[Rfam]
RNA sequence: CUACGGACUUAAUUGGAUUGAGCCUUGGUAUGGAAACCUACUAAGUGAUAACUUUCAAAUUCAGAGAAACCCGGGAAUCAAAAAUGGGCAAUCCUGAGCCAAAUCCUAUUUUACGUGAAUAAAACAAAGCAAACAAGGGUUCAGAAAGUGAGAAAAGGGAUAGGUGCAGAGACUCAAUGAAAGGGAAAUUAAUCGAAUAUCGAAACUGCAUAAAGGAUGAAGGAUAAGUCUAUAAUACACUAUGGAUACAAAAUGAAAAAUUAUCUCAAAAAUGACAACCUGAAGCUGUAUUUAUAUUAAUGAAAAAGAAAACAAAAGAAUUGGGAUUCCAAGUUGAAGAAUCGAAUAUUCAUUUAUCAAAUCAUUCACUCCAUAGUCUGGUAGAUCGUUUCUUUUGAAGAACUGAUUUCUCAGACGAGAAUAAAGAUAGAGUCCCAUUCUACAUGUCAAUAUAAA
Numbered sequence: 001c002u003a004c005g006g007a008c009u010u011a012a013u014u015g016g017a018u019u020g021a022g023c024c025u026u027g028g029u030a031u032g033g034a035a036a037c038c039u040a041c042u043a044a045g046u047g048a049u050a051a052c053u054u055u056c057a058a059a060u061u062c063a064g065a066g067a068a069a070c071c072c073g074g075g076a077a078u079c080a081a082a083a084a085u086g087g088g089c090a091a092u093c094c095u096g097a098g099c100c101a102a103a104u105c106c107u108a109u110u111u112u113a114c115g116u117g118a119a120u121a122a123a124a125c126a127a128a129g130c131a132a133a134c135a136a137g138g139g140u141u142c143a144g145a146a147a148g149u150g151a152g153a154a155a156a157g158g159g160a161u162a163g164g165u166g167c168a169g170a171g172a173c174u175c176a177a178u179g180a181a182a183g184g185g186a187a188a189u190u191a192a193u194c195g196a197a198u199a200u201c202g203a204a205a206c207u208g209c210a211u212a213a214a215g216g217a218u219g220a221a222g223g224a225u226a227a228g229u230c231u232a233u234a235a236u237a238c239a240c241u242a243u244g245g246a247u248a249c250a251a252a253a254u255g256a257a258a259a260a261u262u263a264u265c266u267c268a269a270a271a272a273u274g275a276c277a278a279c280c281u282g283a284a285g286c287u288g289u290a291u292u293u294a295u296a297u298u299a300a301u302g303a304a305a306a307a308g309a310a311a312a313c314a315a316a317a318g319a320a321u322u323g324g325g326a327u328u329c330c331a332a333g334u335u336g337a338a339g340a341a342u343c344g345a346a347u348a349u350u351c352a353u354u355u356a357u358c359a360a361a362u363c364a365u366u367c368a369c370u371c372c373a374u375a376g377u378c379u380g381g382u383a384g385a386u387c388g389u390u391u392c393u394u395u396u397g398a399a400g401a402a403c404u405g406a407u408u409u410c411u412c413a414g415a416c417g418a419g420a421a422u423a424a425a426g427a428u429a430g431a432g433u434c435c436c437a438u439u440c441u442a443c444a445u446g447u448c449a450a451u452a453u454a455a456a
Base pairs, nucleotide, nucleotide: 005024008022009021010020011019012018013017052183053182054181056179057178061097062096063095064094066092070088071087072086073085098165099164104159105158106157111153112152114150115149169435171434172433173432174431175430189419190418193415194414441454442453444451445450

The family of this 456-nucleotide RNA sequence from Acer yangbiense is "Group I catalytic intron". Rfam describes the family as follows. Group I catalytic introns are large self-splicing ribozymes. They catalyse their own excision from mRNA, tRNA and rRNA precursors in a wide range of organisms. The core secondary structure consists of 9 paired regions (P1-P9). These fold to essentially two domains - the P4-P6 domain (formed from the stacking of P5, P4, P6 and P6a helices) and the P3-P9 domain (formed from the P8, P3, P7 and P9 helices). The family's consensus secondary structure is taken from published work. Gene Ontology term of the family: Group I intron splicing.